[Rfam]
RNA sequence: CUAAUUUAAAUUUGUAUGGAGUUGGAACAUUCGCCUACGUUUGCCGCUAAGGGCGCUGUUCCAACUGCAUACCAUUUUUUUA
Numbered sequence: 001c002u003a004a005u006u007u008a009a010a011u012u013u014g015u016a017u018g019g020a021g022u023u024g025g026a027a028c029a030u031u032c033g034c035c036u037a038c039g040u041u042u043g044c045c046g047c048u049a050a051g052g053g054c055g056c057u058g059u060u061c062c063a064a065c066u067g068c069a070u071a072c073c074a075u076u077u078u079u080u081u082a
Stems, first nucleotide, its partner, number of pairs: 008078003012074001014072003018068001020066010034052003039047002